[Rfam]
RNA sequence: CUGUUAUUGGAAUUUGAUAGUUGUGCGAUGGGGUUCAUACCUUAACUGCCAAAACGGGACCCCUUUUGGGGUAUAAAUCUUGUAAAAGGAUUAUAUUCCGUACUAAGGAUAUUUGAUAAUAUCCGGAAUGUCUAGAGACUACACGGCAAGCCAAUUGGUGGUAUGAAUGGAUAGUCCCUAGUUUUUUUUACCAUCUAGGUAUCCCAUACAAAAUGGUAA
Numbered sequence: 001c002u003g004u005u006a007u008u009g010g011a012a013u014u015u016g017a018u019a020g021u022u023g024u025g026c027g028a029u030g031g032g033g034u035u036c037a038u039a040c041c042u043u044a045a046c047u048g049c050c051a052a053a054a055c056g057g058g059a060c061c062c063c064u065u066u067u068g069g070g071g072u073a074u075a076a077a078u079c080u081u082g083u084a085a086a087a088g089g090a091u092u093a094u095a096u097u098c099c100g101u102a103c104u105a106a107g108g109a110u111a112u113u114u115g116a117u118a119a120u121a122u123c124c125g126g127a128a129u130g131u132c133u134a135g136a137g138a139c140u141a142c143a144c145g146g147c148a149a150g151c152c153a154a155u156u157g158g159u160g161g162u163a164u165g166a167a168u169g170g171a172u173a174g175u176c177c178c179u180a181g182u183u184u185u186u187u188u189u190a191c192c193a194u195c196u197a198g199g200u201a202u203c204c205c206a207u208a209c210a211a212a213a214u215g216g217u218a219a
Stems, first nucleotide, its partner, number of pairs: 002218007013025001015023003028207006034167008048176001050174001054101004059078001060071003102131002137172001140146001150159003178198004
Source information:
The record is a 219-nucleotide sequence from Naegleria sp. NG872, which matches "GIR1 branching ribozyme" in Rfam. NCBI's taxonomy places the organism under Eukaryota, Discoba, Tetramitia, Eutetramitea, Naegleria. For this family Rfam cites "An mRNA is capped by a 2', 5' lariat catalyzed by a group I-like ribozyme" (Nielsen et al., Science, 2005). The family's consensus secondary structure is taken from published work.